[Rfam]
RNA sequence: CGGGCUGGUCGAAAGACCCUGGUCCACCGAGAAGCGGGGGAAUCCCCC
Number, nucleotide and partner (000 for none) at each position: 001c000002g025003g024004g023005c022006u021007g018008g017009u016010c015011g000012a000013a000014a000015g010016a009017c008018c007019c000020u000021g006022g005023u004024c003025c002026a000027c000028c000029g000030a000031g000032a000033a000034g000035c000036g000037g000038g000039g000040g000041a000042a000043u000044c000045c000046c000047c000048c000

The record is a 48-nucleotide sequence, which matches "DUF3800-XI RNA" in Rfam.
The sequence is in the family's curated seed alignment.
The base pairs follow the family's consensus structure, which is taken from published work.
By type it is a small RNA.
Rfam's curators write: Actinobacteria, Firmicutes, Proteobacteria, Spirochaetes (1 example).